[Rfam]
RNA sequence: CGGGGCGGCGGGACGGUCGCCGCCUGCAUCGGCAGGGGGAGGAAAGUCCGGGCUUCACAGGGCACGGUGAUGGGUAACACCCACCCUCGGUAACGGUACCGGUAAGUCUCCCGGGCCGGGCCGCCAACGAGAGGGACAGUGCAACAGAAAGCAUACCGCCGGCUGGGCCAGUCGCUGGGCUUUUUCGCCGCGAUACUACCUGGCCGGUAAGGGUGAAAAGGUGCGGGGCGCAAGCCCUUAAUGUAAGAGCGCACCAGCAGCGGGGCGACCCGCUGGCUCGGCAAACCCCACCGGAAGCAAGGUCAAGCAGGGGAGAUGGUUGGCCCGACCGCUCGAUCCCCGGGUAGACCGCUGGACCCUGCGGGCAACUGCAGGGCUAGAGGAAUGACCGUCACCCGCUGCGGCGGGAACAGAACCCGGCUUAUACGCCGCUCCGCUCA
Numbered sequence: 001c002g003g004g005g006c007g008g009c010g011g012g013a014c015g016g017u018c019g020c021c022g023c024c025u026g027c028a029u030c031g032g033c034a035g036g037g038g039g040a041g042g043a044a045a046g047u048c049c050g051g052g053c054u055u056c057a058c059a060g061g062g063c064a065c066g067g068u069g070a071u072g073g074g075u076a077a078c079a080c081c082c083a084c085c086c087u088c089g090g091u092a093a094c095g096g097u098a099c100c101g102g103u104a105a106g107u108c109u110c111c112c113g114g115g116c117c118g119g120g121c122c123g124c125c126a127a128c129g130a131g132a133g134g135g136a137c138a139g140u141g142c143a144a145c146a147g148a149a150a151g152c153a154u155a156c157c158g159c160c161g162g163c164u165g166g167g168c169c170a171g172u173c174g175c176u177g178g179g180c181u182u183u184u185u186c187g188c189c190g191c192g193a194u195a196c197u198a199c200c201u202g203g204c205c206g207g208u209a210a211g212g213g214u215g216a217a218a219a220g221g222u223g224c225g226g227g228g229c230g231c232a233a234g235c236c237c238u239u240a241a242u243g244u245a246a247g248a249g250c251g252c253a254c255c256a257g258c259a260g261c262g263g264g265g266c267g268a269c270c271c272g273c274u275g276g277c278u279c280g281g282c283a284a285a286c287c288c289c290a291c292c293g294g295a296a297g298c299a300a301g302g303u304c305a306a307g308c309a310g311g312g313g314a315g316a317u318g319g320u321u322g323g324c325c326c327g328a329c330c331g332c333u334c335g336a337u338c339c340c341c342g343g344g345u346a347g348a349c350c351g352c353u354g355g356a357c358c359c360u361g362c363g364g365g366c367a368a369c370u371g372c373a374g375g376g377c378u379a380g381a382g383g384a385a386u387g388a389c390c391g392u393c394a395c396c397c398g399c400u401g402c403g404g405c406g407g408g409a410a411c412a413g414a415a416c417c418c419g420g421c422u423u424a425u426a427c428g429c430c431g432c433u434c435c436g437c438u439c440a
Base pairs, nucleotide, nucleotide: 001436002435003434004433005432006431007430008429009428010427011425012393013392014391015390016389017388018387020039021038023036024035025034026033027032044423045422046421048420049419050418051417052416053297054296055295056294060326061325062324063323065293066292067291068290069289071083072082073081074080085133086131087130088129089128134288135287139286140285141282142281156212157211158208159207160206161205162204163203164202165201166200220255221254222253223252224251225250257277258275259274260273261272262271263270264269301350302349303348304347311341312340313339315337317331318330319329320328321327357376358375359374360373361372362371363370364369
A member of the RNA family "Bacterial RNase P class A" from Thermogemmata fonticola, 440 nucleotides long. The base pairs follow the family's consensus structure, which is taken from published work. Rfam describes the family as follows. Ribonuclease P (RNase P) is a ubiquitous endoribonuclease, found in archaea, bacteria and eukarya as well as chloroplasts and mitochondria. It scores 250 bits against the family's covariance model. Gene Ontology terms of the family: dimeric ribonuclease P complex, ribonuclease P activity and tRNA processing.